RNA sequence: UUCAGGCAGGGAUGCGUAGAUCCGAGCGGUCCUCCGUAAGGGGACGCGGUCGCCAAUGGCCGCUCGGGGAGCAAGUGGCGAGACCGACCCACGGGGAA
Numbered sequence: 001u002u003c004a005g006g007c008a009g010g011g012a013u014g015c016g017u018a019g020a021u022c023c024g025a026g027c028g029g030u031c032c033u034c035c036g037u038a039a040g041g042g043g044a045c046g047c048g049g050u051c052g053c054c055a056a057u058g059g060c061c062g063c064u065c066g067g068g069g070a071g072c073a074a075g076u077g078g079c080g081a082g083a084c085c086g087a088c089c090c091a092c093g094g095g096g097a098a
Stems, first nucleotide, its partner, number of pairs: 001098003009090003013073003022067008048085002050081005
c-di-GMP-II-GAG riboswitch aptamer: a 98-nucleotide RNA sequence. For this family Rfam cites "Bioinformatic analysis of riboswitch structures uncovers variant classes with altered ligand specificity" (Weinberg et al., Proc Natl Acad Sci U S A, 2017). Rfam's curators put it in the seed alignment.